A member of the RNA family "mir-74 microRNA precursor family" from Caenorhabditis japonica, 78 nucleotides long.
RNA sequence: ACUGCACGUUUGGGCUUCCUUCUCCUUCCCAGCAACCCUCAAUUUUGCUGGCAAGACUAGGCAGUCUACACGUGCAGU
Numbered sequence: 001a002c003u004g005c006a007c008g009u010u011u012g013g014g015c016u017u018c019c020u021u022c023u024c025c026u027u028c029c030c031a032g033c034a035a036c037c038c039u040c041a042a043u044u045u046u047g048c049u050g051g052c053a054a055g056a057c058u059a060g061g062c063a064g065u066c067u068a069c070a071c072g073u074g075c076a077g078u
Stems, first nucleotide, its partner, number of pairs: 002077008012067005018061003023056002026053001029051005034045002

Rfam 15.1 lists 14 matches to the family in 8 species. Rfam links the family to the GO terms miRNA-mediated post-transcriptional gene silencing and RISC complex.